[Rfam]
RNA: Y RNA
RNA sequence: GGCUGGUCCAGAUGUUGUGGGUUCUCUCCGCUGGCUGCUCUCUGUCAGCUACAGAUCAAACUCCUUGUUCUACUCCCUGCCCUUCUCAACUACUGCACUUGGCUGGUCUAUA
Numbered sequence: 001g002g003c004u005g006g007u008c009c010a011g012a013u014g015u016u017g018u019g020g021g022u023u024c025u026c027u028c029c030g031c032u033g034g035c036u037g038c039u040c041u042c043u044g045u046c047a048g049c050u051a052c053a054g055a056u057c058a059a060a061c062u063c064c065u066u067g068u069u070c071u072a073c074u075c076c077c078u079g080c081c082c083u084u085c086u087c088a089a090c091u092a093c094u095g096c097a098c099u100u101g102g103c104u105g106g107u108c109u110a111u112a
Stems, first nucleotide, its partner, number of pairs: 001108008010100002014096002017090002020087002044073002047071002